[Rfam]
RNA: MIR2619 microRNA precursor family
RNA sequence: AAAUCGUCCCCUAAGUUUUGCAACUGUAGUAGUUUUGGCCCCCCAAAGCAAAAAAUAAAAUAAAAAAAUAACACGUGACACCUCACUUAGGGGGCCACGUCAGUGUAGACCGAGUCAAAAUUACAUAUGGGGGCCAAAACUGCCACAUGUGCAAAACUUAGAGGGCGAUUU
Numbered sequence: 001a002a003a004u005c006g007u008c009c010c011c012u013a014a015g016u017u018u019u020g021c022a023a024c025u026g027u028a029g030u031a032g033u034u035u036u037g038g039c040c041c042c043c044c045a046a047a048g049c050a051a052a053a054a055a056u057a058a059a060a061u062a063a064a065a066a067a068a069u070a071a072c073a074c075g076u077g078a079c080a081c082c083u084c085a086c087u088u089a090g091g092g093g094g095c096c097a098c099g100u101c102a103g104u105g106u107a108g109a110c111c112g113a114g115u116c117a118a119a120a121u122u123a124c125a126u127a128u129g130g131g132g133g134c135c136a137a138a139a140c141u142g143c144c145a146c147a148u149g150u151g152c153a154a155a156a157c158u159u160a161g162a163g164g165g166c167g168a169u170u171u
Stems, first nucleotide, its partner, number of pairs: 001171002004168005012160011025147003029143015073100002076097002079094001081092002